RNA: mir-46/mir-47/mir-281 microRNA precursor family
Organism: Globodera rostochiensis
RNA sequence: AUCUCCGACCAUUGAAGAGAGCCAUCUUUUGACAGUUUAUCACAACCCGAACAAAGGGGCUGAGAGCUGUUUGCUGUCAUGGAGUGCUCUCUUCACAGGAAUGGAG
Numbered sequence: 001a002u003c004u005c006c007g008a009c010c011a012u013u014g015a016a017g018a019g020a021g022c023c024a025u026c027u028u029u030u031g032a033c034a035g036u037u038u039a040u041c042a043c044a045a046c047c048c049g050a051a052c053a054a055a056g057g058g059g060c061u062g063a064g065a066g067c068u069g070u071u072u073g074c075u076g077u078c079a080u081g082g083a084g085u086g087c088u089c090u091c092u093u094c095a096c097a098g099g100a101a102u103g104g105a106g
Stems, first nucleotide, its partner, number of pairs: 014094005020088003025083003031078003035074002